[Rfam]
RNA sequence: GGAUUCUCGUCGAGUAAGAACUAGCCAUUCGCUCGUAGCGAGUCUUGGAGGGCUAAAGGUAACUUUAGUCUUUAAGCGUAGACAGUUAGGUGGCGGAUUUGCUUUACUGAUCGUUCUAUUCAUCCUGUUAAUCAUUAUAGGAUGUAGUUGUUGGGGCGGCGGUAGCGGCGGAUUCGGUUACUAAAAAAAGGGGUACUCAUAAGGGUGUCUUUUUUCUCAAUAUAAGAACU
Numbered sequence: 001g002g003a004u005u006c007u008c009g010u011c012g013a014g015u016a017a018g019a020a021c022u023a024g025c026c027a028u029u030c031g032c033u034c035g036u037a038g039c040g041a042g043u044c045u046u047g048g049a050g051g052g053c054u055a056a057a058g059g060u061a062a063c064u065u066u067a068g069u070c071u072u073u074a075a076g077c078g079u080a081g082a083c084a085g086u087u088a089g090g091u092g093g094c095g096g097a098u099u100u101g102c103u104u105u106a107c108u109g110a111u112c113g114u115u116c117u118a119u120u121c122a123u124c125c126u127g128u129u130a131a132u133c134a135u136u137a138u139a140g141g142a143u144g145u146a147g148u149u150g151u152u153g154g155g156g157c158g159g160c161g162g163u164a165g166c167g168g169c170g171g172a173u174u175c176g177g178u179u180a181c182u183a184a185a186a187a188a189a190g191g192g193g194u195a196c197u198c199a200u201a202a203g204g205g206u207g208u209c210u211u212u213u214u215u216c217u218c219a220a221u222a223u224a225a226g227a228a229c230u
Stems, first nucleotide, its partner, number of pairs: 011035004018030003038086002042083004046078002048073011120224001128222001150221005155182002160176003187215002189212009
RNA: Group II catalytic intron D1-D4-6